[Rfam]
RNA sequence: UGGGUAGUCCAGGCAGUUGCGUGCACCACCUGGGUGUAUGAGGAAAGUCCGGGCUCCAUAGGGCGAGGAUGCCAGAUAACGUCUGGCGUAGGUAACUAUAGGGAAAGUGCAACAGAAACACACCGCCGAAACGGGUAAUGCCGUGGUAAGGUUGAAAUGGUGAGGUAAGAGCUCACCGGGAGGUAUGGUAACAUAUUUCCCGUGUAAACCCCAUCCGGAGCAAGACCAAAUAGGGCAAAGAAGGCGGCUGCCCGUCGCCGCCCGAGAGGUAGGUCGCUGGAGCGUGCUGGUGACAGUACGUCGAGAUAGAUGAUUGCCAAAUACAGAACCCGGCUUACGGGCUGCCCGAAAC
Numbered sequence: 001u002g003g004g005u006a007g008u009c010c011a012g013g014c015a016g017u018u019g020c021g022u023g024c025a026c027c028a029c030c031u032g033g034g035u036g037u038a039u040g041a042g043g044a045a046a047g048u049c050c051g052g053g054c055u056c057c058a059u060a061g062g063g064c065g066a067g068g069a070u071g072c073c074a075g076a077u078a079a080c081g082u083c084u085g086g087c088g089u090a091g092g093u094a095a096c097u098a099u100a101g102g103g104a105a106a107g108u109g110c111a112a113c114a115g116a117a118a119c120a121c122a123c124c125g126c127c128g129a130a131a132c133g134g135g136u137a138a139u140g141c142c143g144u145g146g147u148a149a150g151g152u153u154g155a156a157a158u159g160g161u162g163a164g165g166u167a168a169g170a171g172c173u174c175a176c177c178g179g180g181a182g183g184u185a186u187g188g189u190a191a192c193a194u195a196u197u198u199c200c201c202g203u204g205u206a207a208a209c210c211c212c213a214u215c216c217g218g219a220g221c222a223a224g225a226c227c228a229a230a231u232a233g234g235g236c237a238a239a240g241a242a243g244g245c246g247g248c249u250g251c252c253c254g255u256c257g258c259c260g261c262c263c264g265a266g267a268g269g270u271a272g273g274u275c276g277c278u279g280g281a282g283c284g285u286g287c288u289g290g291u292g293a294c295a296g297u298a299c300g301u302c303g304a305g306a307u308a309g310a311u312g313a314u315u316g317c318c319a320a321a322u323a324c325a326g327a328a329c330c331c332g333g334c335u336u337a338c339g340g341g342c343u344g345c346c347c348g349a350a351a352c
Stems, first nucleotide, its partner, number of pairs: 001348010012318007020040008045336003049333005054220004062253002067216005072086005087101001088099004102211002107209002109205003123151002125147003131144004159177006179201001180199008224275004234262003244258005282301008

Source information
The record is a 352-nucleotide sequence from Hominibacterium faecale, which matches "Bacterial RNase P class A" in Rfam. A search with the family's covariance model found it, with a score of 272 bits. The family's RNA type in Rfam is ribozyme.